[Rfam]
RNA sequence: ACGUUAUCAAGAAAGGUGGAGGGAUAAGACCCUAUGAGACCUUGGCAACCCUCCUUUUGGAGAAGGUGCUACAUUCUACCGCGCUCUGGCGUGGAUAGAUAACAA
Numbered sequence: 001a002c003g004u005u006a007u008c009a010a011g012a013a014a015g016g017u018g019g020a021g022g023g024a025u026a027a028g029a030c031c032c033u034a035u036g037a038g039a040c041c042u043u044g045g046c047a048a049c050c051c052u053c054c055u056u057u058u059g060g061a062g063a064a065g066g067u068g069c070u071a072c073a074u075u076c077u078a079c080c081g082c083g084c085u086c087u088g089g090c091g092u093g094g095a096u097a098g099a100u101a102a103c104a105a
Stems, first nucleotide, its partner, number of pairs: 003103006013043005021032003027077003044070004049066002051062004074097001079094006
The record is a 105-nucleotide RNA from Gillisia hiemivivida, which matches "SAM riboswitch aptamer (S box leader)" in Rfam. The SAM riboswitch is found upstream of a number of genes which code for proteins involved in methionine or cysteine biosynthesis in Gram-positive bacteria. Taxonomically the source falls in Gillisia (Bacteria, Bacteroidota, Flavobacteriia, Flavobacteriales).